[Rfam]
RNA sequence: CGCCUUGUGGGUGAAAGCCCGACGGCCGAGCCGGAGCGAGAAGUCAGCAGAGGUCGUAGUAGCUGCAAGCCGGGGCCGAUGAGGCCACAAGGCCAGAGCGAAGGAC
Number, nucleotide and partner (000 for none) at each position: 001c028002g027003c000004c000005u024006u000007g000008u021009g020010g019011g018012u017013g000014a000015a000016a000017g012018c011019c010020c009021g008022a000023c000024g005025g000026c000027c002028g001029a000030g000031c000032c000033g000034g000035a000036g000037c000038g000039a000040g000041a000042a000043g000044u051045c050046a000047g000048c000049a000050g045051a044052g000053g106054u105055c104056g000057u000058a000059g000060u000061a000062g099063c098064u097065g000066c000067a000068a000069g000070c000071c000072g000073g000074g000075g093076c092077c091078g000079a000080u000081g000082a000083g000084g000085c000086c000087a000088c000089a000090a000091g077092g076093c075094c000095a000096g000097a064098g063099c062100g000101a000102a000103g000104g055105a054106c053
The record is a 106-nucleotide sequence from Hydrogenophaga sp. A37, which matches "Group II catalytic intron D1-D4-1" in Rfam. A reference for the family is Lehmann and Schmidt (2003), "Group II introns: structure and catalytic versatility of large natural ribozymes", Crit Rev Biochem Mol Biol. It scores 43 bits against the family's covariance model. The organism belongs to Hydrogenophaga, within Bacteria. Group II introns are found in rRNA, tRNA and mRNA of organelles in fungi, plants and protists, and also in mRNA in bacteria. Rfam 15.1 lists 2,508 matches to the family in 1,144 species.